[Rfam]
RNA sequence: AAAUAAAAUCAAGCGCCAGGACCCUGGAAGCACCGGGGUUGACGAGGAGAGGGAGUAUCGAAGGUUCGGCGGAUGCCCUCCGGCCGGUCACGGCCGUAAGCGCAGUACAAAACCCGGAGGCAACUCCGGCACAAAGACUGCAGGUGACCAAC
Dot-bracket structure: ...................((((((((.....))))))))........(((((....((((....))))......)))))((((((....)))))).....(((((.......((((((....)))))).......)))))...........
Shown here is a 152-nucleotide RNA from Desulforamulus ruminis, a member of the family "glmS glucosamine-6-phosphate activated ribozyme aptamer".
Rfam describes the family as follows. This entry contains a glucosamine-6-phosphate activated ribozyme that is found in the mRNA for GlmS. GlmS is an enzyme that uses fructose-6-phosphate and glutamine to generate glucosamine-6-phosphate. The ribozyme catalyses self cleavage of the glmS mRNA that is thought to regulate GlmS activity.
It scores 106 bits against the family's covariance model.
The base pairs follow the family's consensus structure, which is taken from published work.